[Rfam]
The family of this 92-nucleotide sequence is "c-di-GMP-I-GGC riboswitch aptamer". The sequence is in the family's curated seed alignment.
RNA sequence: UGACGAAACGCCACACCCGGAGCAAUCCGGGGCCGGGAAGCUACGGGCUCCACCACGGGCUUUCAAUCUGGUGGGCCGCCGAGCCGCCGAAC
Numbered sequence: 001u002g003a004c005g006a007a008a009c010g011c012c013a014c015a016c017c018c019g020g021a022g023c024a025a026u027c028c029g030g031g032g033c034c035g036g037g038a039a040g041c042u043a044c045g046g047g048c049u050c051c052a053c054c055a056c057g058g059g060c061u062u063u064c065a066a067u068c069u070g071g072u073g074g075g076c077c078g079c080c081g082a083g084c085c086g087c088c089g090a091a092c
Base pairs, nucleotide, nucleotide: 011036012035016031017030018029019028020027021026034078040084041083042082044081045080046079047076048075049074